[Rfam]
RNA sequence: GACACCGUGAGGUGUUGGUCGGAGGGAGCGGGCUGGCAUAACUCAACGAGCUGACGAAUAAAAAUCAGAUCAGGCAUCAAUUCGUAGGUGAUUUUGCAAUACAAGAAGUAGCCUAAAUUCUGCCGUAAAUUUUGGUGUAUAUCCUGCGGUGAUAAGUUAAAGGAAGAUAU
Numbered sequence: 001g002a003c004a005c006c007g008u009g010a011g012g013u014g015u016u017g018g019u020c021g022g023a024g025g026g027a028g029c030g031g032g033c034u035g036g037c038a039u040a041a042c043u044c045a046a047c048g049a050g051c052u053g054a055c056g057a058a059u060a061a062a063a064a065u066c067a068g069a070u071c072a073g074g075c076a077u078c079a080a081u082u083c084g085u086a087g088g089u090g091a092u093u094u095u096g097c098a099a100u101a102c103a104a105g106a107a108g109u110a111g112c113c114u115a116a117a118u119u120c121u122g123c124c125g126u127a128a129a130u131u132u133u134g135g136u137g138u139a140u141a142u143c144c145u146g147c148g149g150u151g152a153u154a155a156g157u158u159a160a161a162g163g164a165a166g167a168u169a170u
Base pairs, nucleotide, nucleotide: 001016002015003014004013005012006011031168037162041157042156043155048153050150051149052148053147065146068143069142074138075137076136078134079133080132084130085129086114087113088112089111092107093106094105095104

A member of the RNA family "Group II catalytic intron D1-D4-3" from Anaerobiospirillum thomasii, 170 nucleotides long. The family has 406 seed sequences and 4,274 matches in Rfam 15.1. Taxonomically the source falls in Anaerobiospirillum (Bacteria, Pseudomonadati, Pseudomonadota, Aeromonadales). The match comes from Rfam's covariance-model search (66 bits). Rfam describes the family as follows. Group II introns are found in rRNA, tRNA and mRNA of organelles in fungi, plants and protists, and also in mRNA in bacteria.